[Rfam]
RNA sequence: GCCACCUUAGCUCAGAUGGUAGAGCACGUCACUCGUAAUGACGGGGUCGUCGGUUCGAUUCCGACAGGUGGCU
Dot-bracket structure: (((((((..((((........)))).(((((.......))))).....(((((.......)))))))))))).
Numbered sequence: 001g002c003c004a005c006c007u008u009a010g011c012u013c014a015g016a017u018g019g020u021a022g023a024g025c026a027c028g029u030c031a032c033u034c035g036u037a038a039u040g041a042c043g044g045g046g047u048c049g050u051c052g053g054u055u056c057g058a059u060u061c062c063g064a065c066a067g068g069u070g071g072c073u
Stems, first nucleotide, its partner, number of pairs: 001072007010025004027043005049065005

The family of this 73-nucleotide RNA sequence from a Gemmatimonadota bacterium is "tRNA".
A search with the family's covariance model found it, with a score of 68 bits.
Lineage of the source: Bacteria > Pseudomonadati > Gemmatimonadota.
Pairs were carried over by alignment from the consensus structure, which is taken from published work.
Clan: tRNA clan.